[Rfam]
Nucleotides: 062
Stems, first nucleotide, its partner, number of pairs: 004052005010026005037062006043055002
Number, partner (000 for none) and nucleotide at each position: 001000g002000c003000a004052c005051g006050u007049u008048g009000a010026g011025c012024c013023c014022c015000a016000u017000c018000c019000a020000u021000c022014g023013g024012g025011g026010c027000u028000g029000c030000a031000g032000u033000c034000a035000g036000a037062c038061c039060c040059g041058c042057g043055u044054c045000a046000g047000g048008c049007a050006a051005c052004g053000g054044g055043g056000a057042c058041g059040c060039g061038g062037g
Shown here is a 62-nucleotide RNA sequence, a member of the family "Glutamine-II riboswitch aptamer". Its family is annotated with glutamine binding in the Gene Ontology. The family's consensus secondary structure is taken from published work. For this family Rfam cites "Structure and ligand binding of the glutamine-II riboswitch" (Huang et al., Nucleic Acids Res, 2019).